[Rfam]
RNA sequence: AAAGACAAGUAGAAGCACCCGCUUCUCACCUGAUUGACGCCUUUUAGGUAGUUAACUGGUUCAUCACGAUUCAUGUAUACGAAUGAGGAGAUGUGUGGGUGCAAGUAUGUACCGACACUUUUUUUAUGUA
Numbered sequence: 001a002a003a004g005a006c007a008a009g010u011a012g013a014a015g016c017a018c019c020c021g022c023u024u025c026u027c028a029c030c031u032g033a034u035u036g037a038c039g040c041c042u043u044u045u046a047g048g049u050a051g052u053u054a055a056c057u058g059g060u061u062c063a064u065c066a067c068g069a070u071u072c073a074u075g076u077a078u079a080c081g082a083a084u085g086a087g088g089a090g091a092u093g094u095g096u097g098g099g100u101g102c103a104a105g106u107a108u109g110u111a112c113c114g115a116c117a118c119u120u121u122u123u124u125u126a127u128g129u130a
Base pairs, nucleotide, nucleotide: 011026012025013024014023015022016021028060029059030058036053037052038051039049040048094117095116096115098113099112100111101110102109103108
Dot-bracket structure: ..........((((((....)))))).(((.....(((((.......)).)))....))).................................(((.((((((....)))))).))).............
The record is a 130-nucleotide RNA sequence from Oceanobacillus sp. J11TS1, which matches "Ribosomal protein L20 leader" in Rfam.
Taxonomically the source falls in Oceanobacillus (Bacteria, Bacillota, Bacilli, Caryophanales).
Rfam describes the family as follows. This family is a putative r-protein leader autoregulatory structure found in B. subtilis and other low-GC Gram-positive bacteria.